[Rfam]
c-di-GMP-I riboswitch aptamer: a 76-nucleotide sequence from Butyrivibrio sp. Su6. A search with the family's covariance model found it, with a score of 50 bits.

RNA sequence: UUUUACAUUUGGCAAAGCAGGCCAAAGCCUGUGACGCAAAGCUAUAGGGACUUUAAAAUGUCAGCCAGUUGUACCU
Dot-bracket structure: ...........((...((((((....))))))...))..((((...(((((........)))..))))))......
The base pairs follow the family's consensus structure, which is taken from published work.